[Rfam]
RNA sequence: AAAAUAGCAUGAGGCAGCGAUGCAGAUGAGUAGUGUAUAGAGAAGACAUUCUAUGAAAUACAUGAAAGGUAACCAUCGCCGAAUGAAUAAUUGUGGUAACAAUUCUUCAUGGGGUUAUAAGAAACACUUAUGACACUCCUACAUUAGUAGAGGCGCUUGCAGAAAU
Numbered sequence: 001a002a003a004a005u006a007g008c009a010u011g012a013g014g015c016a017g018c019g020a021u022g023c024a025g026a027u028g029a030g031u032a033g034u035g036u037a038u039a040g041a042g043a044a045g046a047c048a049u050u051c052u053a054u055g056a057a058a059u060a061c062a063u064g065a066a067a068g069g070u071a072a073c074c075a076u077c078g079c080c081g082a083a084u085g086a087a088u089a090a091u092u093g094u095g096g097u098a099a100c101a102a103u104u105c106u107u108c109a110u111g112g113g114g115u116u117a118u119a120a121g122a123a124a125c126a127c128u129u130a131u132g133a134c135a136c137u138c139c140u141a142c143a144u145u146a147g148u149a150g151a152g153g154c155g156c157u158u159g160c161a162g163a164a165a166u
Stems, first nucleotide, its partner, number of pairs: 007160003011156001017079006025070001033063006083110005089104006111137002114134008139150004
Rfam assigns this 166-nucleotide RNA sequence from Haploplasma axanthum to the family "Lysine riboswitch aptamer". Pairs were carried over by alignment from the consensus structure, which is taken from published work. The source organism's lineage runs through Bacteria, Bacillati, Mycoplasmatota, Acholeplasmatales and Haploplasma. Rfam's curators write: Riboswitches are metabolite binding domains within certain messenger RNAs that serve as precision sensors for their corresponding targets. Allosteric rearrangement of mRNA structure is mediated by ligand binding, and this results in modulation of gene expression. This family includes riboswitches that sense lysine in a number of genes involved in lysine metabolism, including lysC. It scores 74 bits against the family's covariance model.